Rfam assigns this 148-nucleotide sequence from Acidomonas methanolica to the family "radC RNA".
A search with the family's covariance model found it, with a score of 75 bits.
RNA sequence: CGUCUCUGACGAUCCCCGCCGUUCUCUCCGGCGACAUGCCCAGGUAGUCCCGAUCCUCAAGGCUACGGCGUGAUGAUGUCAUUGCGUUGAUCGACCCGCUCGCAUCGCGUCCCGCCGGCGAGCACUCACCCGCACAGGUGAUGGACGC
Numbered sequence: 001c002g003u004c005u006c007u008g009a010c011g012a013u014c015c016c017c018g019c020c021g022u023u024c025u026c027u028c029c030g031g032c033g034a035c036a037u038g039c040c041c042a043g044g045u046a047g048u049c050c051c052g053a054u055c056c057u058c059a060a061g062g063c064u065a066c067g068g069c070g071u072g073a074u075g076a077u078g079u080c081a082u083u084g085c086g087u088u089g090a091u092c093g094a095c096c097c098g099c100u101c102g103c104a105u106c107g108c109g110u111c112c113c114g115c116c117g118g119c120g121a122g123c124a125c126u127c128a129c130c131c132g133c134a135c136a137g138g139u140g141a142u143g144g145a146c147g148c
Base pairs, nucleotide, nucleotide: 012037013036015033018032019031020030021029044066045065046064047063048062049061052092053091054090055089067088068087069086070085071084072083073082074081075080118148119147120146126141127140128139129138130137
Dot-bracket structure: ...........((.(..((((.......)))))..))......((((((..[[[[.....))))))(((((((((....)))))))))]]]].........................(((.....(((((......)))))....)))